RNA sequence: GCGGCCGCUUGGUGGUCGUAUGCGUGGCGCCAUUUACUGAGUCCUGGGGAGUGACGUCACGUAUAUGGCCGCCAAGCCGCCGC
Numbered sequence: 001g002c003g004g005c006c007g008c009u010u011g012g013u014g015g016u017c018g019u020a021u022g023c024g025u026g027g028c029g030c031c032a033u034u035u036a037c038u039g040a041g042u043c044c045u046g047g048g049g050a051g052u053g054a055c056g057u058c059a060c061g062u063a064u065a066u067g068g069c070c071g072c073c074a075a076g077c078c079g080c081c082g083c
Base pairs, nucleotide, nucleotide: 002082003081004080005079007077015069016068017067018066019065020064021063022062024060025059026058027057029055031053032052033051037049038048
mir-489 microRNA precursor family: an 83-nucleotide sequence from Molossus molossus. The match comes from Rfam's covariance-model search (70 bits). A reference for the family is Bentwich et al. (2005), "Identification of hundreds of conserved and nonconserved human microRNAs", Nat Genet. Rfam links the family to the GO terms miRNA-mediated post-transcriptional gene silencing and RISC complex. Rfam 15.1 lists 631 matches to the family in 609 species.